[Rfam]
RNA: MIR159 microRNA precursor family
RNA sequence: AAUAGAAAGAAGGAGCUCCCUUCAGUCCAAGCAAGGAAAGAGAGGGGAAAAUUAUCUCCCGCAUCAUUCACACAAUCACAGUAGCAGAACAACAAUGAAUAACCCCCAAUAUCUUUGCCUCUUCUCUGCUGCUAGUGCUUGAAUGAAUGAGUCGGCAGCUAGUUUCAACCCCUUUCUCCCAUCCAUGAGUGGGCUGAAGGAAGCUCUCUCACCCCAUUUC
Numbered sequence: 001a002a003u004a005g006a007a008a009g010a011a012g013g014a015g016c017u018c019c020c021u022u023c024a025g026u027c028c029a030a031g032c033a034a035g036g037a038a039a040g041a042g043a044g045g046g047g048a049a050a051a052u053u054a055u056c057u058c059c060c061g062c063a064u065c066a067u068u069c070a071c072a073c074a075a076u077c078a079c080a081g082u083a084g085c086a087g088a089a090c091a092a093c094a095a096u097g098a099a100u101a102a103c104c105c106c107c108a109a110u111a112u113c114u115u116u117g118c119c120u121c122u123u124c125u126c127u128g129c130u131g132c133u134a135g136u137g138c139u140u141g142a143a144u145g146a147a148u149g150a151g152u153c154g155g156c157a158g159c160u161a162g163u164u165u166c167a168a169c170c171c172c173u174u175u176c177u178c179c180c181a182u183c184c185a186u187g188a189g190u191g192g193g194c195u196g197a198a199g200g201a202a203g204c205u206c207u208c209u210c211a212c213c214c215c216a217u218u219u220c
Base pairs, nucleotide, nucleotide: 013206014205015204016203017202019200020199023196024195025194026193027192028191029190036183056158057157059155060154061153065149066148067147068146073141074140075139